[Rfam]
The family of this 82-nucleotide RNA sequence from Drosophila melanogaster is "tRNA".
Rfam links the family to the GO term triplet codon-amino acid adaptor activity.
The sequence is in the family's curated seed alignment.
RNA sequence: GCAGUCGUGGCCGAGUGGUUAAGGCGUCUGACUCGAAAUCAGAUUCCCUCUGGGAGCGUAGGUUCGAAUCCUACCGGCUGCG
Dot-bracket structure: (((((((..(((..........))).(((((.......)))))..............(((((.......)))))))))))).
Numbered sequence: 001g002c003a004g005u006c007g008u009g010g011c012c013g014a015g016u017g018g019u020u021a022a023g024g025c026g027u028c029u030g031a032c033u034c035g036a037a038a039u040c041a042g043a044u045u046c047c048c049u050c051u052g053g054g055a056g057c058g059u060a061g062g063u064u065c066g067a068a069u070c071c072u073a074c075c076g077g078c079u080g081c082g
Stems, first nucleotide, its partner, number of pairs: 001081007010025003027043005058074005